Notes:
The family of this 101-nucleotide RNA from Gossypium barbadense is "Small nucleolar RNA snoR31/Z110/Z27". On this family, see Barneche et al., J Mol Biol 2001: "Identification of 66 box C/D snoRNAs in Arabidopsis thaliana: extensive gene duplications generated multiple isoforms predicting new ribosomal RNA 2'-O-methylation sites". NCBI's taxonomy places the organism under Eukaryota, Streptophyta, Tracheophyta, Spermatophyta, Gossypium. The match comes from Rfam's covariance-model search (53 bits). Rfam's curators write: This family contains several related snoRNAs including R31, Z27 and Z110. The family has 8 seed sequences and 571 matches in Rfam 15.1.
[Rfam]
RNA sequence: GUCAUCAAGUGAUGAAAUUGGAAAAAUAUCUUAGGACACCUUCCUACAUAGCCUUUUUCAAAGGCUAUGGAUGAGAAGAAUAUUUCCUUUCUGAUGGUGAC
Numbered sequence: 001g002u003c004a005u006c007a008a009g010u011g012a013u014g015a016a017a018u019u020g021g022a023a024a025a026a027u028a029u030c031u032u033a034g035g036a037c038a039c040c041u042u043c044c045u046a047c048a049u050a051g052c053c054u055u056u057u058u059c060a061a062a063g064g065c066u067a068u069g070g071a072u073g074a075g076a077a078g079a080a081u082a083u084u085u086c087c088u089u090u091c092u093g094a095u096g097g098u099g100a101c
Base pairs, nucleotide, nucleotide: 001101002100003099004098005097006096007095